[Rfam]
RNA: Eukaryotic small subunit ribosomal RNA, nucleotides 1738 to 1902
Organism: Spodoptera littoralis
RNA sequence: CCGCCCGUCGCUACUACCGAUUGAAUGAUUUAGUGAGGUCUUCGGACCGACACGCGGUGGCUUCACGGCCGUCGGCGUUGCUGGGAAGUUGACCAAACUUGAUCAUUUAGAGGAAGUAAAAGUCGUAACAAGGUUUCCGUAGGGGAACCUGCGGAAGGAUCAUUA
Numbered sequence: 001c002c003g004c005c006c007g008u009c010g011c012u013a014c015u016a017c018c019g020a021u022u023g024a025a026u027g028a029u030u031u032a033g034u035g036a037g038g039u040c041u042u043c044g045g046a047c048c049g050a051c052a053c054g055c056g057g058u059g060g061c062u063u064c065a066c067g068g069c070c071g072u073c074g075g076c077g078u079u080g081c082u083g084g085g086a087a088g089u090u091g092a093c094c095a096a097a098c099u100u101g102a103u104c105a106u107u108u109a110g111a112g113g114a115a116g117u118a119a120a121a122g123u124c125g126u127a128a129c130a131a132g133g134u135u136u137c138c139g140u141a142g143g144g145g146a147a148c149c150u151g152c153g154g155a156a157g158g159a160u161c162a163u164u165a
Base pairs, nucleotide, nucleotide: 001132003129006125007124009122012118013117014116015115017113018112021109023108024107025106026105027104028103029102030101032099033098034097037094038093039092040091043088047084048083049082051080052078053077054076055075057073058071059070060069061068134157135156136155137154138153139152140151141150142149143148